Rfam assigns this 102-nucleotide RNA sequence from Psychrobacillus glaciei to the family "Purine riboswitch aptamer". The family is grouped with related families in Rfam's "Purine riboswitches". The organism belongs to Psychrobacillus, within Bacteria. The family's consensus secondary structure is taken from published work.
RNA sequence: AAUAUUCUAAUAGCACUUUCUCGUAUAAUCGCAGGAAUAUGGCCUGCAAGUUUCUACCGGCUUACCGUAAAUGAGCUGACUAUGAGUGGCAAUACAAUAAUA
Numbered sequence: 001a002a003u004a005u006u007c008u009a010a011u012a013g014c015a016c017u018u019u020c021u022c023g024u025a026u027a028a029u030c031g032c033a034g035g036a037a038u039a040u041g042g043c044c045u046g047c048a049a050g051u052u053u054c055u056a057c058c059g060g061c062u063u064a065c066c067g068u069a070a071a072u073g074a075g076c077u078g079a080c081u082a083u084g085a086g087u088g089g090c091a092a093u094a095c096a097a098u099a100a101u102a
Stems, first nucleotide, its partner, number of pairs: 018088001020086006029049001031047005058078007